[Rfam]
RNA: abiF RNA
RNA sequence: CCCGGCAAGCCUCUCAUAGAAGCUCAAACCGCCGGGA
Numbered sequence: 001c002c003c004g005g006c007a008a009g010c011c012u013c014u015c016a017u018a019g020a021a022g023c024u025c026a027a028a029c030c031g032c033c034g035g036g037a
Stems, first nucleotide, its partner, number of pairs: 001036006008024003